[Rfam]
RNA sequence: UGUGGGAGUGAGAUUAAGACUCGCUGAUUUAUUUGUGAAUAGUCAGUCUUUUUCUCUCUCCUAUA
Numbered sequence: 001u002g003u004g005g006g007a008g009u010g011a012g013a014u015u016a017a018g019a020c021u022c023g024c025u026g027a028u029u030u031a032u033u034u035g036u037g038a039a040u041a042g043u044c045a046g047u048c049u050u051u052u053u054c055u056c057u058c059u060c061c062u063a064u065a
Stems, first nucleotide, its partner, number of pairs: 001065008010056004016050006023043004